Record summary
Shown here is a 73-nucleotide sequence from Coptotermes formosanus, a member of the family "mir-278 microRNA precursor family". NCBI's taxonomy places the organism under Eukaryota, Opisthokonta, Metazoa, Bilateria, Coptotermes. Pairs were carried over by alignment from the consensus structure, which was predicted with RNAalifold. A search with the family's covariance model found it, with a score of 63 bits.
RNA sequence: GCCACGUACGGAUGAUAGUUCCUCGUCGACCUUUUGUUCGAUAUGGUCGGUGGGACUUUCGUCCGUUUGCGUC
Dot-bracket structure: ..(.((..(((((((.(((((.(...(((((.............)))))..)))))).)))))))..)).)..